The family of this 64-nucleotide RNA sequence from Galemys pyrenaicus is "U7 small nuclear RNA". The base pairs follow the family's consensus structure, which was predicted with PFOLD. From the family's description: Animal histone pre-mRNAs are spliced by a different mechanism than nuclear pre-mRNAs and self-splicing introns. This processing involves the U7 snRNP, which contains only one RNA species: U7. The 5' end of U7 RNA is thought to base-pair to a conserved spacer element downstream of the cleavage site in histone pre-mRNA. This family contains a number of annotated U7 pseudogenes.

[Rfam]
RNA sequence: AAGUGUUACAGCUCUUUUAUAACUUAUGUAGCUGGUUUUCUGAUCCUCACUGGGAGACACCCUU
Numbered sequence: 001a002a003g004u005g006u007u008a009c010a011g012c013u014c015u016u017u018u019a020u021a022a023c024u025u026a027u028g029u030a031g032c033u034g035g036u037u038u039u040c041u042g043a044u045c046c047u048c049a050c051u052g053g054g055a056g057a058c059a060c061c062c063u064u
Stems, first nucleotide, its partner, number of pairs: 034061003037057005042051001044049001